[Rfam]
RNA sequence: AUACUUACCUUAAGACGCCAGGGGAGAUCAGGAAGUCCUGCUGGUCAAGUACACAUCUUCAUUUGAGGGAUGCUAUGCGGUUUAUAGGUGGGUUUUCUCACCUUUGCAAUUAACGUAAGCUUCCUCGUCGAUACACAUACAUGCGAAGAGCGUGCUUGCUGACGUUUUGUUCCCUCGUUUCUGCAGCACACGGAGUAUCUGCUCUGUGGGCUGCAGGGGCCCUUUUUUUCUUCUGCCUGGAGAAGUAUGGCACUGAGUACAAUCAGUGCUGGGGGAGCUGGAACUCUUUGGGAGAACUUUGAUGUGAAGUUGUUCUGUCAAAAGGAAUAUUACGCCUAUAUUGCAGUCUAUUGACGUUGCUGAUUCCAUUGGAUUAGUUUCCAUUGAGAAGGUUGAGCGGCGGACGAUGGCUUGCAAAGUAAUAUUUCGUUUGCGGGACGUGAACUUUCUCUUCGGAGAGGGAUCGAAACUUUGCGGCAGAGUGUGUCUUACCCUUGUGGUGAGAUAGAAUCGCCAAAGAGUUUUGGUAGAAACGGGUGGGUCUUAUAAUUUUUGAUUUAUUUU
Numbered sequence: 001a002u003a004c005u006u007a008c009c010u011u012a013a014g015a016c017g018c019c020a021g022g023g024g025a026g027a028u029c030a031g032g033a034a035g036u037c038c039u040g041c042u043g044g045u046c047a048a049g050u051a052c053a054c055a056u057c058u059u060c061a062u063u064u065g066a067g068g069g070a071u072g073c074u075a076u077g078c079g080g081u082u083u084a085u086a087g088g089u090g091g092g093u094u095u096u097c098u099c100a101c102c103u104u105u106g107c108a109a110u111u112a113a114c115g116u117a118a119g120c121u122u123c124c125u126c127g128u129c130g131a132u133a134c135a136c137a138u139a140c141a142u143g144c145g146a147a148g149a150g151c152g153u154g155c156u157u158g159c160u161g162a163c164g165u166u167u168u169g170u171u172c173c174c175u176c177g178u179u180u181c182u183g184c185a186g187c188a189c190a191c192g193g194a195g196u197a198u199c200u201g202c203u204c205u206g207u208g209g210g211c212u213g214c215a216g217g218g219g220c221c222c223u224u225u226u227u228u229u230c231u232u233c234u235g236c237c238u239g240g241a242g243a244a245g246u247a248u249g250g251c252a253c254u255g256a257g258u259a260c261a262a263u264c265a266g267u268g269c270u271g272g273g274g275g276a277g278c279u280g281g282a283a284c285u286c287u288u289u290g291g292g293a294g295a296a297c298u299u300u301g302a303u304g305u306g307a308a309g310u311u312g313u314u315c316u317g318u319c320a321a322a323a324g325g326a327a328u329a330u331u332a333c334g335c336c337u338a339u340a341u342u343g344c345a346g347u348c349u350a351u352u353g354a355c356g357u358u359g360c361u362g363a364u365u366c367c368a369u370u371g372g373a374u375u376a377g378u379u380u381c382c383a384u385u386g387a388g389a390a391g392g393u394u395g396a397g398c399g400g401c402g403g404a405c406g407a408u409g410g411c412u413u414g415c416a417a418a419g420u421a422a423u424a425u426u427u428c429g430u431u432u433g434c435g436g437g438a439c440g441u442g443a444a445c446u447u448u449c450u451c452u453u454c455g456g457a458g459a460g461g462g463a464u465c466g467a468a469a470c471u472u473u474g475c476g477g478c479a480g481a482g483u484g485u486g487u488c489u490u491a492c493c494c495u496u497g498u499g500g501u502g503a504g505a506u507a508g509a510a511u512c513g514c515c516a517a518a519g520a521g522u523u524u525u526g527g528u529a530g531a532a533a534c535g536g537g538u539g540g541g542u543c544u545u546a547u548a549a550u551u552u553u554u555g556a557u558u559u560a561u562u563u564u
Stems, first nucleotide, its partner, number of pairs: 010549003013544003017045005022039004046158007054150001056149005071141002163535006171276006177220007187210001189208008230245005250269007

Shown here is a 564-nucleotide RNA from Torulaspora globosa, a member of the family "Yeast U1 spliceosomal RNA". Gene Ontology terms of the family: pre-mRNA 5'-splice site binding, U1 snRNP and mRNA 5'-splice site recognition. A reference for the family is Zwieb (1997), "The uRNA database", Nucleic Acids Res. Taxonomically the source falls in Torulaspora (Eukaryota, Opisthokonta, Fungi, Saccharomycotina). Rfam's curators write: U1 is a small nuclear RNA (snRNA) component of the spliceosome (involved in pre-mRNA splicing). The match comes from Rfam's covariance-model search (246 bits). Its Rfam clan is "U1 clan".